Shown here is an 83-nucleotide RNA from Tyrannus savana, a member of the family "Small nucleolar RNA SNORD121A".
The base pairs follow the family's consensus structure, which was predicted with WAR.
The literature on the family includes a 2006 paper in Nucleic Acids Res by Yang et al., "snoSeeker: an advanced computational package for screening of guide and orphan snoRNA genes in the human genome".
By type it is a C/D-box small nucleolar RNA.
[Rfam]
RNA sequence: AUUCAAAAUACAGUGUUGUCUUUUCCAAGCAUAUAUCUGAUUACUCUGUGUGGAAAAUGACUGUUGCUGUGUGACUUUUGGAU
Dot-bracket structure: ((((((.((((...........................................................)))..).))))))
Numbered sequence: 001a002u003u004c005a006a007a008a009u010a011c012a013g014u015g016u017u018g019u020c021u022u023u024u025c026c027a028a029g030c031a032u033a034u035a036u037c038u039g040a041u042u043a044c045u046c047u048g049u050g051u052g053g054a055a056a057a058u059g060a061c062u063g064u065u066g067c068u069g070u071g072u073g074a075c076u077u078u079u080g081g082a083u
Stems, first nucleotide, its partner, number of pairs: 001083006008076001009073003
Source information
Its family is annotated with nucleolus and RNA processing in the Gene Ontology. Taxonomically the source falls in Tyrannus (Eukaryota, Archosauria, Aves, Telluraves).